A member of the RNA family "Alphaproteobacteria transfer-messenger RNA" from Pelagibacterales bacterium SAG-MED17, 298 nucleotides long. From the family's description: Bacterial tmRNA, also known as 10Sa RNA or SsrA, is named for its dual tRNA and mRNA-like properties. Its role is to liberate the mRNA from a stalled ribosome. To accomplish this part of the tmRNA is used as a reading frame that ends in a translation stop signal. The broken mRNA is replaced in the ribosome by the tmRNA and translation of the tmRNA leads to addition of a proteolysis tag to the incomplete protein enabling recognition by a protease. The organism belongs to Candidatus Pelagibacterales, within Bacteria.
[Rfam]
RNA sequence: UACCUUUAUUAAAUGAAUUUAAUUAAUAUAUUAACGUAGUUGGUUUUCCAACUAUGACGAUAAACGAAUUUCGUAAUAACCAUUACGGACGUGGGGGCAGUACCCACCACCUCCACCAUUUUCAACUUAUGGGGGUGAAUUAGGAUCGACGGGUGUCUAAAAGUUGUUCUUUCGUUCGGUAUUGUUCCGCCGUGAUGGGCUAAUUUAUAAAUGCUAACGAAAGUUACGCACUUGCAGCUUAAUUAGUUUACUAAUUAAGUUACGGGGUUUGGGGCACCUGGCAACAGAACGCCCCUUU
Numbered sequence: 001u002a003c004c005u006u007u008a009u010u011a012a013a014u015g016a017a018u019u020u021a022a023u024u025a026a027u028a029u030a031u032u033a034a035c036g037u038a039g040u041u042g043g044u045u046u047u048c049c050a051a052c053u054a055u056g057a058c059g060a061u062a063a064a065c066g067a068a069u070u071u072c073g074u075a076a077u078a079a080c081c082a083u084u085a086c087g088g089a090c091g092u093g094g095g096g097g098c099a100g101u102a103c104c105c106a107c108c109a110c111c112u113c114c115a116c117c118a119u120u121u122u123c124a125a126c127u128u129a130u131g132g133g134g135g136u137g138a139a140u141u142a143g144g145a146u147c148g149a150c151g152g153g154u155g156u157c158u159a160a161a162a163g164u165u166g167u168u169c170u171u172u173c174g175u176u177c178g179g180u181a182u183u184g185u186u187c188c189g190c191c192g193u194g195a196u197g198g199g200c201u202a203a204u205u206u207a208u209a210a211a212u213g214c215u216a217a218c219g220a221a222a223g224u225u226a227c228g229c230a231c232u233u234g235c236a237g238c239u240u241a242a243u244u245a246g247u248u249u250a251c252u253a254a255u256u257a258a259g260u261u262a263c264g265g266g267g268u269u270u271g272g273g274g275c276a277c278c279u280g281g282c283a284a285c286a287g288a289a290c291g292c293c294c295c296u297u298u
Base pairs, nucleotide, nucleotide: 039052040051041050042049043048056176057175058174059173060172066169067168068167069166072163081155082154083153086151087150091107092106093105094104095103108137109136110135111134112133113132114131177192178191179190180189182202184200187199188198265279266278267277268276271295272294273293274292